[Rfam]
RNA sequence: CUCUUAUCAAGAGCGGCGGAGGGACUAGCCCGAUGAAGCCCAGCAACCCCGGUAAACCAACCGGAAGGUGCCAAUUCUUACAAGAGCCGAGAUGGCUUUUGGGAGAUAAGAG
Numbered sequence: 001c002u003c004u005u006a007u008c009a010a011g012a013g014c015g016g017c018g019g020a021g022g023g024a025c026u027a028g029c030c031c032g033a034u035g036a037a038g039c040c041c042a043g044c045a046a047c048c049c050c051g052g053u054a055a056a057c058c059a060a061c062c063g064g065a066a067g068g069u070g071c072c073a074a075u076u077c078u079u080a081c082a083a084g085a086g087c088c089g090a091g092a093u094g095g096c097u098u099u100u101g102g103g104a105g106a107u108a109a110g111a112g
Stems, first nucleotide, its partner, number of pairs: 001112008013041001015040003021031003027078002043071003047068002049064004076104001081101008
Dot-bracket structure: ((((((((....(.(((...(((...[[)))......)))).(((.((((((........))))..)))))....(]]..((((((((.....))))))))..)))))))))
The record is a 112-nucleotide RNA from Marininema mesophilum, which matches "SAM riboswitch aptamer (S box leader)" in Rfam.